[Rfam]
Bacterial large subunit ribosomal RNA: a 586-nucleotide part of an RNA from uncultured Chloroflexi bacterium 1i19. Lineage of the source: Bacteria > Bacillati > Chloroflexota. Gene Ontology terms of the family: structural constituent of ribosome and ribosome. It is one of the family's seed sequences.
RNA sequence: CCCGCAGCAGGACAAAAAGACCCCGUGGAGCUUUACUGCAGCUUGAUAUUGGAUUAGGGCUUACUCUGUGUAGGAUAGGUGGGAGACUGUGAAACUGGUUCGCCAGGAUCGGUGGAGUCGUUGGUGAAAUACCACCCUGAUUGAGUUUUGAUUCUAACCUGUACCGUAACCCGGUAUGGGGACAGUGUCAGGUGGGCAGUUUGACUGGGGCGGUCGCCUCCCAAAAGGUAACGGAGGCGCGCAAAGGUUCCCUCAGGCUGAAUGGAAACCAGUUGAAGAGUGCAAACGCAUAAGGGAGCUUGACUGCGAAACGGACAUGUUGAGCAGAGACGAAAGUCGGCGUUAGUGAACCCACGGUUCUGAGUGGAAAGGCUGUGGCUUAACGGAUAAAAGCUACCCCGGGGAUAACAGGCUAGUCUUCCCCAAGAGUUCACAUCGACGGGAAGGUGCGGCACCUCGAUGUCGGCUCGUCACAUCCUGGGGCUGGAGUAAGUCCCAAGGGUUGGGCUGUCCGCCCAUUAAAGUGGCACGCGAGCUGGGUUCAGACCGUCGUGAGACAGGUCGGUCUCUAUCCGCUGUGGGCGCA
Numbered sequence: 001c002c003c004g005c006a007g008c009a010g011g012a013c014a015a016a017a018a019g020a021c022c023c024c025g026u027g028g029a030g031c032u033u034u035a036c037u038g039c040a041g042c043u044u045g046a047u048a049u050u051g052g053a054u055u056a057g058g059g060c061u062u063a064c065u066c067u068g069u070g071u072a073g074g075a076u077a078g079g080u081g082g083g084a085g086a087c088u089g090u091g092a093a094a095c096u097g098g099u100u101c102g103c104c105a106g107g108a109u110c111g112g113u114g115g116a117g118u119c120g121u122u123g124g125u126g127a128a129a130u131a132c133c134a135c136c137c138u139g140a141u142u143g144a145g146u147u148u149u150g151a152u153u154c155u156a157a158c159c160u161g162u163a164c165c166g167u168a169a170c171c172c173g174g175u176a177u178g179g180g181g182a183c184a185g186u187g188u189c190a191g192g193u194g195g196g197c198a199g200u201u202u203g204a205c206u207g208g209g210g211c212g213g214u215c216g217c218c219u220c221c222c223a224a225a226a227g228g229u230a231a232c233g234g235a236g237g238c239g240c241g242c243a244a245a246g247g248u249u250c251c252c253u254c255a256g257g258c259u260g261a262a263u264g265g266a267a268a269c270c271a272g273u274u275g276a277a278g279a280g281u282g283c284a285a286a287c288g289c290a291u292a293a294g295g296g297a298g299c300u301u302g303a304c305u306g307c308g309a310a311a312c313g314g315a316c317a318u319g320u321u322g323a324g325c326a327g328a329g330a331c332g333a334a335a336g337u338c339g340g341c342g343u344u345a346g347u348g349a350a351c352c353c354a355c356g357g358u359u360c361u362g363a364g365u366g367g368a369a370a371g372g373c374u375g376u377g378g379c380u381u382a383a384c385g386g387a388u389a390a391a392a393g394c395u396a397c398c399c400c401g402g403g404g405a406u407a408a409c410a411g412g413c414u415a416g417u418c419u420u421c422c423c424c425a426a427g428a429g430u431u432c433a434c435a436u437c438g439a440c441g442g443g444a445a446g447g448u449g450c451g452g453c454a455c456c457u458c459g460a461u462g463u464c465g466g467c468u469c470g471u472c473a474c475a476u477c478c479u480g481g482g483g484c485u486g487g488a489g490u491a492a493g494u495c496c497c498a499a500g501g502g503u504u505g506g507g508c509u510g511u512c513c514g515c516c517c518a519u520u521a522a523a524g525u526g527g528c529a530c531g532c533g534a535g536c537u538g539g540g541u542u543c544a545g546a547c548c549g550u551c552g553u554g555a556g557a558c559a560g561g562u563c564g565g566u567c568u569c570u571a572u573c574c575g576c577u578g579u580g581g582g583c584g585c586a
Stems, first nucleotide, its partner, number of pairs: 001582008010574003015568001022403004027399002029395005035200004042192007051154013065140002068137001078136005085119003094113008158180009203215004216238006239384001241341002247299006253279002256274005280289002304327004310321003329338003352378007360371002412453003416450001417447007427437002464539001465537004469531001470528005477502002480497006504518005545563004549558003